[Rfam]
Nucleotides: 327
Stems, first nucleotide, its partner, number of pairs: 040054005058173005068166007083151003088147002093109005110133007174189004180199002183197002291307004297324006
Number, partner (000 for none) and nucleotide at each position: 001000g002000u003000g004000u005000u006000u007000g008000a009000c010000a011000u012000u013000u014000g015000u016000u017000u018000u019000a020000u021000a022000c023000u024000u025000u026000u027000g028000u029000a030000u031000a032000c033000u034000u035000a036000c037000a038000a039000u040054g041053u042052a043051u044050a045000u046000u047000a048000u049000u050044u051043a052042u053041a054040c055000u056000a057000u058173g059172g060171c061170a062169a063000u064000a065000a066000a067000c068166u069165u070164a071163c072162c073161g074160u075000g076000c077000a078000a079000u080000a081000g082000g083151u084150g085149u086000a087000u088147u089146g090000g091000a092000c093109c094108c095107g096106a097105g098000g099000g100000c101000a102000g103000u104000a105097c106096u107095c108094g109093g110133c111132g112131c113130c114129u115128c116127c117000a118000c119000a120000a121000a122000u123000u124000a125000g126000g127116g128115g129114g130113g131112g132111u133110g134000u135000a136000u137000u138000a139000g140000g141000a142000u143000c144000g145000a146089c147088a148000u149085g150084c151083a152000u153000a154000g155000u156000a157000a158000a159000g160074a161073u162072g163071g164070u165069g166068a167000u168000u169062u170061u171060g172059c173058u174189c175188g176187g177186u178000u179000a180199g181198a182000c183197a184196c185000c186177a187176c188175c189174g190000a191000u192000a193000a194000g195000a196184g197183u198181u199180c200000a201000u202000a203000a204000u205000u206000u207000a208000a209000a210000a211000g212000c213000a214000a215000a216000c217000g218000a219000u220000a221000a222000u223000u224000u225000u226000g227000c228000u229000g230000c231000a232000g233000a234000u235000a236000g237000u238000a239000a240000u241000g242000a243000a244000c245000u246000u247000u248000c249000u250000c251000u252000u253000g254000c255000u256000g257000c258000u259000u260000a261000a262000u263000a264000u265000a266000g267000c268000a269000c270000a271000a272000u273000c274000g275000g276000u277000u278000u279000a280000u281000u282000a283000c284000u285000a286000a287000a288000g289000c290000a291307c292306g293305g294304u295000u296000u297324g298323g299322g300321a301320a302319a303000c304294a305293c306292c307291g308000g309000g310000u311000a312000a313000c314000a315000g316000a317000a318000g319302u320301u321300u322299c323298c324297c325000a326000c327000a
Background
The family of this 327-nucleotide RNA sequence from Wolbachia pipientis is "Alphaproteobacteria transfer-messenger RNA". Gene Ontology term of the family: RNA catabolic process. The literature on the family includes a 1996 paper in RNA by Williams and Bartel, "Phylogenetic analysis of tmRNA secondary structure". Pairs were carried over by alignment from the consensus structure, which is taken from published work.